The family of this 74-nucleotide RNA from Vulpes vulpes is "Small nucleolar RNA U2-19". It is annotated as a C/D-box small nucleolar RNA.
RNA sequence: AAUCAAUGAUGAAAAUAGCCAAAUCUGAGCAUCAGAAGACCUUCCAGUCUACCGGAUACAUCUUGCUUUUAAAA
Numbered sequence: 001a002a003u004c005a006a007u008g009a010u011g012a013a014a015a016u017a018g019c020c021a022a023a024u025c026u027g028a029g030c031a032u033c034a035g036a037a038g039a040c041c042u043u044c045c046a047g048u049c050u051a052c053c054g055g056a057u058a059c060a061u062c063u064u065g066c067u068u069u070u071a072a073a074a
Base pairs, nucleotide, nucleotide: 029059031057032056033055037050038049039048040047